Source information:
A member of the RNA family "c-di-AMP riboswitch aptamer (ydaO/yuaA leader)" from Gordonia bronchialis, 212 nucleotides long.

[Rfam]
RNA sequence: AAGCGGUCACCGCUCAAUCGCCCUCGCGGGCGAACCGGGGAACCACCAUCUUCGGGCUGGUUCGAUGUUUCAUCGGACGAGUUCGAAUCGGGGUGAAUCGCGUAUCGAGUCGGGUGUGUUCGGCAAUGGACACGUCACGAUGACACGCGCGUAGGGCCAUUCUUCCGGCCCGAACCCGACAGCUAACUCGGUAGGCGGUAGAGGGAGAACUG
Numbered sequence: 001a002a003g004c005g006g007u008c009a010c011c012g013c014u015c016a017a018u019c020g021c022c023c024u025c026g027c028g029g030g031c032g033a034a035c036c037g038g039g040g041a042a043c044c045a046c047c048a049u050c051u052u053c054g055g056g057c058u059g060g061u062u063c064g065a066u067g068u069u070u071c072a073u074c075g076g077a078c079g080a081g082u083u084c085g086a087a088u089c090g091g092g093g094u095g096a097a098u099c100g101c102g103u104a105u106c107g108a109g110u111c112g113g114g115u116g117u118g119u120u121c122g123g124c125a126a127u128g129g130a131c132a133c134g135u136c137a138c139g140a141u142g143a144c145a146c147g148c149g150c151g152u153a154g155g156g157c158c159a160u161u162c163u164u165c166c167g168g169c170c171c172g173a174a175c176c177c178g179a180c181a182g183c184u185a186a187c188u189c190g191g192u193a194g195g196c197g198g199u200a201g202a203g204g205g206a207g208a209a210c211u212g
Base pairs, nucleotide, nucleotide: 011197012196013195014194018033019032020031021030022029034192035191036190037189038188039187044090091177092176093175099151100150101149102148154171155170156169157168
Rfam links the family to the GO terms cyclic-di-AMP binding and regulation of gene expression. The match comes from Rfam's covariance-model search (82 bits). On this family, see Barrick et al., Proc Natl Acad Sci U S A 2004: "New RNA motifs suggest an expanded scope for riboswitches in bacterial genetic control". The source organism's lineage runs through Bacteria, Actinomycetota, Actinomycetes, Mycobacteriales and Gordonia bronchialis.